[Rfam]
RNA sequence: CCACUCUGGAAAGAGCGCUGGAGUUACUCCCGCGCCGCCGAUGGUGAAAGCGCUGACGCGCGAAACUCUCAGGUACCGAUGACAGAGGGGGA
Numbered sequence: 001c002c003a004c005u006c007u008g009g010a011a012a013g014a015g016c017g018c019u020g021g022a023g024u025u026a027c028u029c030c031c032g033c034g035c036c037g038c039c040g041a042u043g044g045u046g047a048a049a050g051c052g053c054u055g056a057c058g059c060g061c062g063a064a065a066c067u068c069u070c071a072g073g074u075a076c077c078g079a080u081g082a083c084a085g086a087g088g089g090g091g092a
Stems, first nucleotide, its partner, number of pairs: 001090002004087005015035004037074003040070002044068001046066001050061002